[Rfam]
RNA sequence: UGAUGGACUAGGUCGGGCAGCUAGGCCCUGCCCUUUACCCGCAACUUCGGCCUUUAGCGGGGACCGAACCCGGGUGCGUCCGGUCAGACCGGUACGGGCCCCGGGAGCCAACGCAGAAGCCUCGUCCGUCGGGGACAGCGGUCCGUGGAAGUCGUCCGCAGGGUCGGCUGAACCGCGGUUCGUCGGUGACACUCCGCCAGGCGCGGAAGCGAGCAGCGGAUCACCGGACGUAUGUCGCUCGAGGGAUUGCGGGGUGGAGGAGGCAACCGGGAUUCCCCGCACCGGAACGCCGGGCAACCCCGUCGUCCACCA
Numbered sequence: 001u002g003a004u005g006g007a008c009u010a011g012g013u014c015g016g017g018c019a020g021c022u023a024g025g026c027c028c029u030g031c032c033c034u035u036u037a038c039c040c041g042c043a044a045c046u047u048c049g050g051c052c053u054u055u056a057g058c059g060g061g062g063a064c065c066g067a068a069c070c071c072g073g074g075u076g077c078g079u080c081c082g083g084u085c086a087g088a089c090c091g092g093u094a095c096g097g098g099c100c101c102c103g104g105g106a107g108c109c110a111a112c113g114c115a116g117a118a119g120c121c122u123c124g125u126c127c128g129u130c131g132g133g134g135a136c137a138g139c140g141g142u143c144c145g146u147g148g149a150a151g152u153c154g155u156c157c158g159c160a161g162g163g164u165c166g167g168c169u170g171a172a173c174c175g176c177g178g179u180u181c182g183u184c185g186g187u188g189a190c191a192c193u194c195c196g197c198c199a200g201g202c203g204c205g206g207a208a209g210c211g212a213g214c215a216g217c218g219g220a221u222c223a224c225c226g227g228a229c230g231u232a233u234g235u236c237g238c239u240c241g242a243g244g245g246a247u248u249g250c251g252g253g254g255u256g257g258a259g260g261a262g263g264c265a266a267c268c269g270g271g272a273u274u275c276c277c278c279g280c281a282c283c284g285g286a287a288c289g290c291c292g293g294g295c296a297a298c299c300c301c302g303u304c305g306u307c308c309a310c311c312a
Stems, first nucleotide, its partner, number of pairs: 001312002004309005011065004015033006038061005044055001071302004078295004082290001089285005095279004100271005107264003112259001114257001119255007126245002129242005134236004138231003141180001143178005150169005156163002183227007193220005202211003
Shown here is a 312-nucleotide RNA from Halogeometricum borinquense, a member of the family "Archaeal signal recognition particle RNA". Gene Ontology terms of the family: signal recognition particle, plasma membrane targeting and SRP-dependent cotranslational protein targeting to membrane, signal sequence recognition. The base pairs follow the family's consensus structure, which is taken from published work. Lineage of the source: Archaea > Methanobacteriati > Halobacteriales > Halogeometricum > Halogeometricum borinquense. The literature on the family includes a 2002 paper in Curr Opin Struct Biol by Wild et al., "Towards the structure of the mammalian signal recognition particle". It is one of the family's seed sequences. Clan: SRP clan.